[Rfam]
TPP riboswitch aptamer (THI element): a 100-nucleotide RNA sequence from Geomicrobium sp. JCM 19039. The organism belongs to Geomicrobium, within Bacteria.
RNA sequence: AUCAACCACUAGGGGUGUCGCAAGACUGAGAGGGACUCGUUCCCGACUCUUAGAACCUGAUCUGGGUAACACCAGCGUAGGGAAGUGGGAGAGCACAUUA
Numbered sequence: 001a002u003c004a005a006c007c008a009c010u011a012g013g014g015g016u017g018u019c020g021c022a023a024g025a026c027u028g029a030g031a032g033g034g035a036c037u038c039g040u041u042c043c044c045g046a047c048u049c050u051u052a053g054a055a056c057c058u059g060a061u062c063u064g065g066g067u068a069a070c071a072c073c074a075g076c077g078u079a080g081g082g083a084a085g086u087g088g089g090a091g092a093g094c095a096c097a098u099u100a
Base pairs, nucleotide, nucleotide: 006088007087008086009085010084011050012049013048014047017026018025019024033043034042035041056081057080058079059078062075063074064073065072